[Rfam]
RNA sequence: AUCGGUUUGUUAACAGAGCCGAUUAUGCGUGCAGAUUUAGUAAUGCAGUCUUCAGUUAAGCGUUAUCUCAGAUAUCUCUUCUUCCUGAUGCCUUCCACAUGCCUCAUAACACAUCUGUAGACAAACCCUAAUGCCAAUUAUGGCUUGUAAAUGAAUGAAGGAAAGACAGAAUGUCUGAUAAAAUGCGCGGUAUCGUAAAAUGGUUUAACGCUGAGAAAGGCUUCGGCUUCAUUUCUCCAAAAGAUGGCAGCAAAGAUGUAUUCGUACAUUUCUCUGCAAUCAGCAGCGAUGGCUUCCGUACUCUGGAAGAAGGUCAGGAAGUUUCUUUCACCAUCGAAAAUGGUCAGAAAGGCCCUGCAGCUGCUAACGUUACCGUUGGCUAAGCAAAAAAUUUGCCAGCUCGAUUUAUCGGGCCAGCUUGAAAAGCCCCGUCAUUGACGGGGCUUUUUUU
Numbered sequence: 001a002u003c004g005g006u007u008u009g010u011u012a013a014c015a016g017a018g019c020c021g022a023u024u025a026u027g028c029g030u031g032c033a034g035a036u037u038u039a040g041u042a043a044u045g046c047a048g049u050c051u052u053c054a055g056u057u058a059a060g061c062g063u064u065a066u067c068u069c070a071g072a073u074a075u076c077u078c079u080u081c082u083u084c085c086u087g088a089u090g091c092c093u094u095c096c097a098c099a100u101g102c103c104u105c106a107u108a109a110c111a112c113a114u115c116u117g118u119a120g121a122c123a124a125a126c127c128c129u130a131a132u133g134c135c136a137a138u139u140a141u142g143g144c145u146u147g148u149a150a151a152u153g154a155a156u157g158a159a160g161g162a163a164a165g166a167c168a169g170a171a172u173g174u175c176u177g178a179u180a181a182a183a184u185g186c187g188c189g190g191u192a193u194c195g196u197a198a199a200a201u202g203g204u205u206u207a208a209c210g211c212u213g214a215g216a217a218a219g220g221c222u223u224c225g226g227c228u229u230c231a232u233u234u235c236u237c238c239a240a241a242a243g244a245u246g247g248c249a250g251c252a253a254a255g256a257u258g259u260a261u262u263c264g265u266a267c268a269u270u271u272c273u274c275u276g277c278a279a280u281c282a283g284c285a286g287c288g289a290u291g292g293c294u295u296c297c298g299u300a301c302u303c304u305g306g307a308a309g310a311a312g313g314u315c316a317g318g319a320a321g322u323u324u325c326u327u328u329c330a331c332c333a334u335c336g337a338a339a340a341u342g343g344u345c346a347g348a349a350a351g352g353c354c355c356u357g358c359a360g361c362u363g364c365u366a367a368c369g370u371u372a373c374c375g376u377u378g379g380c381u382a383a384g385c386a387a388a389a390a391a392u393u394u395g396c397c398a399g400c401u402c403g404a405u406u407u408a409u410c411g412g413g414c415c416a417g418c419u420u421g422a423a424a425a426g427c428c429c430c431g432u433c434a435u436u437g438a439c440g441g442g443g444c445u446u447u448u449u450u451u
Stems, first nucleotide, its partner, number of pairs: 005020001007018002030239002033236003045229001047228004053220001056217001063214003067210001071206002074204001076203002081173001083171001085169003094161002098157003104120001133144003175190003243335005255263002266324001268322004273318004277313001280307002283304001285302001288301001342355002357396004362390001399418003403414001405412002422448012
A member of the RNA family "cspA thermoregulator" from Duffyella gerundensis, 451 nucleotides long. The organism belongs to Duffyella, within Bacteria. The match comes from Rfam's covariance-model search (204 bits). The family's RNA type in Rfam is RNA thermoregulator. A reference for the family is Giuliodori et al. (2010), "The cspA mRNA is a thermosensor that modulates translation of the cold-shock protein CspA", Mol Cell.